[Rfam]
RNA: Phenylalanine leader peptide
RNA sequence: CAAGCAUGAACGCUGCUAUUUUCCGUUUCUUUUUUUACUUUAGCGCCUGAUAUCAGGGGGGCUUUGCGCGUAAGAGAAGAAACGGAAAGUAGCGCUGAAAGCCUCCCUCGUGGAGGCUUUUUUUUU
Numbered sequence: 001c002a003a004g005c006a007u008g009a010a011c012g013c014u015g016c017u018a019u020u021u022u023c024c025g026u027u028u029c030u031u032u033u034u035u036u037a038c039u040u041u042a043g044c045g046c047c048u049g050a051u052a053u054c055a056g057g058g059g060g061g062c063u064u065u066g067c068g069c070g071u072a073a074g075a076g077a078a079g080a081a082a083c084g085g086a087a088a089g090u091a092g093c094g095c096u097g098a099a100a101g102c103c104u105c106c107c108u109c110g111u112g113g114a115g116g117c118u119u120u121u122u123u124u125u126u
Base pairs, nucleotide, nucleotide: 015093016092017091018090020088021087022086023085024084025083026082027081028080029079030078031077032076033075035073036072037071038070046057047056048055059069061067062066098120099119100118101117102116103115104114105113106112